Rfam assigns this 46-nucleotide RNA to the family "ssnA RNA". Rfam's curators put it in the seed alignment.
[Rfam]
RNA sequence: AGGUAUGAGCUGCAACGAAGUGCUUCGCGCACGGGCUGAAUUGGAC
Number, nucleotide and partner (000 for none) at each position: 001a000002g000003g000004u000005a000006u000007g000008a037009g036010c035011u034012g000013c000014a000015a000016c000017g000018a000019a000020g032021u031022g030023c029024u000025u000026c000027g000028c000029g023030c022031a021032c020033g000034g011035g010036c009037u008038g000039a000040a000041u000042u000043g000044g000045a000046c000
The family's consensus secondary structure is taken from published work.